[Rfam]
A member of the RNA family "Nuclear RNase P" from Phyllotreta striolata, 297 nucleotides long.
RNA sequence: UCUACAACAAUCCUGCACCUGGGGCACACAAACAGUGUACUCUGUUACACACGUACUUUUGCAACGGGAAGGUCUGAGAGAGGCAAUAACCCUCUAGCCGGGGGCUUGUGGAGACACAAGGCAAGGGAACCAGAAACAUGUCGACGACGAGCUCAGCCCAGUAUUGCCAUUUUACAUAGCAUAGGUGUGGCUCGGCGUCGAUUGAAAGCUCUUGCCGCCGGCCGUUUGAGUUCAAUCUGCGGGCUGAAGGCACUUUCUGUUGUCUUCAGAACUCAAUUCAGACUAAUCUGUUGUAGA
Numbered sequence: 001u002c003u004a005c006a007a008c009a010a011u012c013c014u015g016c017a018c019c020u021g022g023g024g025c026a027c028a029c030a031a032a033c034a035g036u037g038u039a040c041u042c043u044g045u046u047a048c049a050c051a052c053g054u055a056c057u058u059u060u061g062c063a064a065c066g067g068g069a070a071g072g073u074c075u076g077a078g079a080g081a082g083g084c085a086a087u088a089a090c091c092c093u094c095u096a097g098c099c100g101g102g103g104g105c106u107u108g109u110g111g112a113g114a115c116a117c118a119a120g121g122c123a124a125g126g127g128a129a130c131c132a133g134a135a136a137c138a139u140g141u142c143g144a145c146g147a148c149g150a151g152c153u154c155a156g157c158c159c160a161g162u163a164u165u166g167c168c169a170u171u172u173u174a175c176a177u178a179g180c181a182u183a184g185g186u187g188u189g190g191c192u193c194g195g196c197g198u199c200g201a202u203u204g205a206a207a208g209c210u211c212u213u214g215c216c217g218c219c220g221g222c223c224g225u226u227u228g229a230g231u232u233c234a235a236u237c238u239g240c241g242g243g244c245u246g247a248a249g250g251c252a253c254u255u256u257c258u259g260u261u262g263u264c265u266u267c268a269g270a271a272c273u274c275a276a277u278u279c280a281g282a283c284u285a286a287u288c289u290g291u292u293g294u295a296g297a
Base pairs, nucleotide, nucleotide: 001297002296003295004294007291008290009289012243013242014241015240016239017238021065024062025061035050036049037048038047039046040044074281075280076279077278078277082219083218084217090104091103092102093101094100105120106119107118108117109116110115121215122214123213124212125211126210127209141201142200143199244269245268246267247266248265249264250263251262252261

A search with the family's covariance model found it, with a score of 136 bits. Rfam describes the family as follows. Ribonuclease P (RNase P) is a ubiquitous endoribonuclease, found in archaea, bacteria and eukarya as well as chloroplasts and mitochondria. Its best characterised activity is the generation of mature 5'-ends of tRNAs by cleaving the 5'-leader elements of precursor-tRNAs. Cellular RNase Ps are ribonucleoproteins. RNA from bacterial RNase Ps retains its catalytic activity in the absence of the protein subunit, i.e. it is a ribozyme.